[Rfam]
The family of this 54-nucleotide RNA from Corynebacterium sp. HMSC08D02 is "L31-Corynebacteriaceae ribosomal protein leader". Lineage of the source: Bacteria > Bacillati > Actinomycetota > Mycobacteriales > Corynebacterium. A search with the family's covariance model found it, with a score of 69 bits. The family's RNA type in Rfam is cis-regulatory leader.

RNA sequence: ACUCAGGCACGAUCCCCAAGUGGGGAACCGACCUGAAGUAUCAAUCCUGAGGGA
Dot-bracket structure: (((((((.....(((((....))))).....)))).)))...............

The family's consensus secondary structure is taken from published work.